Description
Shown here is a 58-nucleotide RNA sequence from Averrhoa carambola, a member of the family "Plastid-psbA-2 3UTR RNA". On this family, see Richter et al., Plant Commun 2023: "Retrograde signaling in plants: A critical review focusing on the GUN pathway and beyond". The base pairs follow the family's consensus structure, which was predicted with LocARNA. Rfam's curators put it in the seed alignment. About the family: Plastid psbA-2 is a non-coding RNA (ncRNA) present in plastids. It was identified in inverted repeat sequences in the 3 prime untranslate region (3UTR) of photosystem II quinone-binding protein (psbA). Rfam classes the family as a cis-regulatory element.

Nucleotides: 058
Stems, first nucleotide, its partner, number of pairs: 001052014019034005
Number, partner (000 for none) and nucleotide at each position: 001052a002051a003050g004049g005048a006047g007046c008045a009044a010043u011042a012041a013040c014039c015000a016000a017000u018000u019034u020033c021032u022031u023030g024000a025000u026000a027000u028000a029000u030023c031022a032021a033020g034019g035000g036000g037000u038000u039014g040013g041012u042011u043010a044009u045008u046007g047006c048005u049004c050003c051002u052001u053000u054000a055000u056000u057000u058000u